RNA sequence: UUUGAUUCGUACACUUGGAUUGUACAUCACUUUUAGUGUACAAAUAUAUAUAAAAAUACACAGCGUACAUUUUACAUUUGUACACUAAAAGUGAUGUACAAUCCAAGUGUACGAAUCAAA
Numbered sequence: 001u002u003u004g005a006u007u008c009g010u011a012c013a014c015u016u017g018g019a020u021u022g023u024a025c026a027u028c029a030c031u032u033u034u035a036g037u038g039u040a041c042a043a044a045u046a047u048a049u050a051u052a053a054a055a056a057u058a059c060a061c062a063g064c065g066u067a068c069a070u071u072u073u074a075c076a077u078u079u080g081u082a083c084a085c086u087a088a089a090a091g092u093g094a095u096g097u098a099c100a101a102u103c104c105a106a107g108u109g110u111a112c113g114a115a116u117c118a119a120a
Base pairs, nucleotide, nucleotide: 001120002119003118004117005116006115007114008113009112010111011110012109013108014107015106016105017104018103019102020101021100022099023098024097025096026095027094028093029092030091031090032089033088034087035086036085037084038083039082040081041080042079043078044077045076052072053071057067058066059065

Overview
The family of this 120-nucleotide RNA from Arabidopsis thaliana is "mir-5014 microRNA precursor family". Rfam links the family to the GO terms RISC complex and miRNA-mediated post-transcriptional gene silencing.